[Rfam]
RNA: c-di-GMP-II-GAG riboswitch aptamer
RNA sequence: CAGGGUACCGGGGGCUCAGCAGCGCGGCGCCUCGUCACGGUCGCCCCUACGUUGCGCUGUGCCAGUGGCGAGACCGACCCCUCCGUUC
Numbered sequence: 001c002a003g004g005g006u007a008c009c010g011g012g013g014g015c016u017c018a019g020c021a022g023c024g025c026g027g028c029g030c031c032u033c034g035u036c037a038c039g040g041u042c043g044c045c046c047c048u049a050c051g052u053u054g055c056g057c058u059g060u061g062c063c064a065g066u067g068g069c070g071a072g073a074c075c076g077a078c079c080c081c082u083c084c085g086u087u088c
Stems, first nucleotide, its partner, number of pairs: 002087002005084001007082001010079002013063003022057008039075002041071005